[Rfam]
RNA sequence: GGCACACAUACUGCAUAUGCUAUGGCAGAGCCUCGAACAGCGUAUUGUUCGGGACAGUCGGCACAGACGCCGGCGUCAUCGCUUU
Numbered sequence: 001g002g003c004a005c006a007c008a009u010a011c012u013g014c015a016u017a018u019g020c021u022a023u024g025g026c027a028g029a030g031c032c033u034c035g036a037a038c039a040g041c042g043u044a045u046u047g048u049u050c051g052g053g054a055c056a057g058u059c060g061g062c063a064c065a066g067a068c069g070c071c072g073g074c075g076u077c078a079u080c081g082c083u084u085u
Stems, first nucleotide, its partner, number of pairs: 032053009057074006